[Rfam]
RNA sequence: GCAAUCAUUGCGGCAUACAGGGUCCAGUCGCAUUAAGCCCCGAAUUUUCGGGGUUUUUUGUUAUCAGGCUAUCAAAACACUGGGCUAUUAAGCCCUUUUUUU
Numbered sequence: 001g002c003a004a005u006c007a008u009u010g011c012g013g014c015a016u017a018c019a020g021g022g023u024c025c026a027g028u029c030g031c032a033u034u035a036a037g038c039c040c041c042g043a044a045u046u047u048u049c050g051g052g053g054u055u056u057u058u059u060g061u062u063a064u065c066a067g068g069c070u071a072u073c074a075a076a077a078c079a080c081u082g083g084g085c086u087a088u089u090a091a092g093c094c095c096u097u098u099u100u101u102u
Base pairs, nucleotide, nucleotide: 035056036055037054038053039052040051041050042049082095083094084093085092